Record summary
Shown here is a 293-nucleotide RNA from Streptomyces sp. Ru87, a member of the family "5' ureB small RNA". The family has 13 seed sequences and 4,812 matches in Rfam 15.1. For this family Rfam cites "Helicobacter pylori 5'ureB-sRNA, a cis-encoded antisense small RNA, negatively regulates ureAB expression by transcription termination" (Wen et al., J Bacteriol, 2013). NCBI's taxonomy places the organism under Bacteria, Actinomycetota, Actinomycetes, Streptomycetaceae, Streptomyces. The base pairs follow the family's consensus structure, which was predicted with mfold.
RNA sequence: CGUCGGCGAGUUGCGGGCAGACGAAGUGCACGUGCGCGUCGACGGCUCCGGCGGUCAGGAUCCGGCCGUUGCCCGCGAUGAUCUCCGUCUCCGGGCCGAUCACCAGGUCCGGGUGCACCCCGUCCAUGGUGUCGGGGUUGCCCGCCUUGCCGAUGCCGGUGACCCGGCCGUCCCGGAUGCCGACGUCGGCCUUGACGACACCCCAGUGGUCGAGGAUCACGGCCCCCGUGAUCACGGUGUCGGGCGCCCCUUCGGCGCGGGUCGUACGGGCCUGGCCCAUGGACUCGCGGAUG
Numbered sequence: 001c002g003u004c005g006g007c008g009a010g011u012u013g014c015g016g017g018c019a020g021a022c023g024a025a026g027u028g029c030a031c032g033u034g035c036g037c038g039u040c041g042a043c044g045g046c047u048c049c050g051g052c053g054g055u056c057a058g059g060a061u062c063c064g065g066c067c068g069u070u071g072c073c074c075g076c077g078a079u080g081a082u083c084u085c086c087g088u089c090u091c092c093g094g095g096c097c098g099a100u101c102a103c104c105a106g107g108u109c110c111g112g113g114u115g116c117a118c119c120c121c122g123u124c125c126a127u128g129g130u131g132u133c134g135g136g137g138u139u140g141c142c143c144g145c146c147u148u149g150c151c152g153a154u155g156c157c158g159g160u161g162a163c164c165c166g167g168c169c170g171u172c173c174c175g176g177a178u179g180c181c182g183a184c185g186u187c188g189g190c191c192u193u194g195a196c197g198a199c200a201c202c203c204c205a206g207u208g209g210u211c212g213a214g215g216a217u218c219a220c221g222g223c224c225c226c227c228g229u230g231a232u233c234a235c236g237g238u239g240u241c242g243g244g245c246g247c248c249c250c251u252u253c254g255g256c257g258c259g260g261g262u263c264g265u266a267c268g269g270g271c272c273u274g275g276c277c278c279a280u281g282g283a284c285u286c287g288c289g290g291a292u293g
Stems, first nucleotide, its partner, number of pairs: 001293003006288004011162004015156001016073003019069001027050002032046001035044002054066003075150001078147001080145001087141002091137002094133003101128002106125002109122001111120002167276004173269003177265003180261002188224004193219002203212001227257002234251001237250001239248001